[Rfam]
A member of the RNA family "Mammalian CPEB3 ribozyme" from Gopherus evgoodei, 70 nucleotides long.
A search with the family's covariance model found it, with a score of 47 bits.
About the family: The mammalian CPEB3 ribozyme is a self cleaving RNA located in the second intron of the CPEB3 gene which belongs to a family of genes regulating messenger RNA polyadenylation.
NCBI's taxonomy places the organism under Eukaryota, Craniata, Gnathostomata, Archelosauria, Gopherus.
RNA sequence: AUGGCUCCAGUGGGGGCCACAGCAGGAGCAGUCAUGUUGCAGCCCUGUCAGGUGUUUUGCGAAUCCUGCU
Numbered sequence: 001a002u003g004g005c006u007c008c009a010g011u012g013g014g015g016g017c018c019a020c021a022g023c024a025g026g027a028g029c030a031g032u033c034a035u036g037u038u039g040c041a042g043c044c045c046u047g048u049c050a051g052g053u054g055u056u057u058u059g060c061g062a063a064u065c066c067u068g069c070u
Base pairs, nucleotide, nucleotide: 014045015044016043017042021070022069023068024067025066026065027064028040029039030038049059050058051057052056